[Rfam]
RNA: Group II catalytic intron D1-D4-6
RNA sequence: AAAGUUCCAUGUUGUGAGGUAUAAGCCGUACCGCAGCAAGCGAGCCUUGAGUGGGUAGUAGAGAUACUAACUGCUAAGCGUAGGCCGCAAAACUUGCAAAGCAUAAUUACAGAUAGUCUCGAUAUCAAAAUGUAAUCGGGAAGGACGGAGGGCUCCUUUUCGUCGAAAGCAAUACGGCUGUAAACGCUAAUGCCGAGGAUACAGCCGCUCUCCCAAGGCUUUGAGAG
Numbered sequence: 001a002a003a004g005u006u007c008c009a010u011g012u013u014g015u016g017a018g019g020u021a022u023a024a025g026c027c028g029u030a031c032c033g034c035a036g037c038a039a040g041c042g043a044g045c046c047u048u049g050a051g052u053g054g055g056u057a058g059u060a061g062a063g064a065u066a067c068u069a070a071c072u073g074c075u076a077a078g079c080g081u082a083g084g085c086c087g088c089a090a091a092a093c094u095u096g097c098a099a100a101g102c103a104u105a106a107u108u109a110c111a112g113a114u115a116g117u118c119u120c121g122a123u124a125u126c127a128a129a130a131u132g133u134a135a136u137c138g139g140g141a142a143g144g145a146c147g148g149a150g151g152g153c154u155c156c157u158u159u160u161c162g163u164c165g166a167a168a169g170c171a172a173u174a175c176g177g178c179u180g181u182a183a184a185c186g187c188u189a190a191u192g193c194c195g196a197g198g199a200u201a202c203a204g205c206c207g208c209u210c211u212c213c214c215a216a217g218g219c220u221u222u223g224a225g226a227g
Base pairs, nucleotide, nucleotide: 010038011037012036013035014034018032019031020030021029022196040088041087044085045084046083047082048080049079050075051074052073053072054071056069057068058067059066060065116219117218118217119216121214138213139212140211142209143208144170150163152161175207176206177205178204179203180202181201182200185197